[Rfam]
RNA: SucA RNA motif
Organism: Vitreoscilla filiformis
RNA sequence: GCGCAAUCCGCCAACCGGUCGAGCCGGGCCGCGGAAGGUUACUUAACCCAUCGGAGCUUCGGAAACCGAAGCAAAAGGUGAGCG
Numbered sequence: 001g002c003g004c005a006a007u008c009c010g011c012c013a014a015c016c017g018g019u020c021g022a023g024c025c026g027g028g029c030c031g032c033g034g035a036a037g038g039u040u041a042c043u044u045a046a047c048c049c050a051u052c053g054g055a056g057c058u059u060c061g062g063a064a065a066c067c068g069a070a071g072c073a074a075a076a077g078g079u080g081a082g083c084g
Stems, first nucleotide, its partner, number of pairs: 002084003007035005016026004037048004049080004056072007